mir-146 microRNA precursor family: a 97-nucleotide RNA from Gallus gallus.
The family has 33 seed sequences and 1,617 matches in Rfam 15.1.
Gene Ontology terms of the family: miRNA-mediated post-transcriptional gene silencing and RISC complex.
[Rfam]
RNA sequence: UUGGCAGUUCCCAGCUCUGAGAACUGAAUUCCAUGGACUGGUUUCAAUUCCAUGCGUUCAGUCCAUGGUAUUCAGUUCUCUAGCUUGGCUGCAUCAA
Numbered sequence: 001u002u003g004g005c006a007g008u009u010c011c012c013a014g015c016u017c018u019g020a021g022a023a024c025u026g027a028a029u030u031c032c033a034u035g036g037a038c039u040g041g042u043u044u045c046a047a048u049u050c051c052a053u054g055c056g057u058u059c060a061g062u063c064c065a066u067g068g069u070a071u072u073c074a075g076u077u078c079u080c081u082a083g084c085u086u087g088g089c090u091g092c093a094u095c096a097a
Base pairs, nucleotide, nucleotide: 010088011087013085014084015083020079021078022077023076024075025074026073027072035064036063037062038061039060040059